The family of this 104-nucleotide RNA sequence from Phenylobacterium sp. Root1277 is "caulobacter sRNA CC1840". It scores 64 bits against the family's covariance model. On this family, see Landt et al., Mol Microbiol 2008: "Small non-coding RNAs in Caulobacter crescentus". Rfam classes the family as a small RNA. The pairing is the family consensus, mapped onto this sequence.
RNA sequence: CACGGUCAGUCGCCGUCACUCCCGUCCCUCGAUACGGCGGCUGGCCCGAUGGCAUGACACGCCCAUCGGCGGCGCGUCGGUCCCCCAGCAAGGGCCGACGCGCC
Numbered sequence: 001c002a003c004g005g006u007c008a009g010u011c012g013c014c015g016u017c018a019c020u021c022c023c024g025u026c027c028c029u030c031g032a033u034a035c036g037g038c039g040g041c042u043g044g045c046c047c048g049a050u051g052g053c054a055u056g057a058c059a060c061g062c063c064c065a066u067c068g069g070c071g072g073c074g075c076g077u078c079g080g081u082c083c084c085c086c087a088g089c090a091a092g093g094g095c096c097g098a099c100g101c102g103c104c
Stems, first nucleotide, its partner, number of pairs: 004046013071104012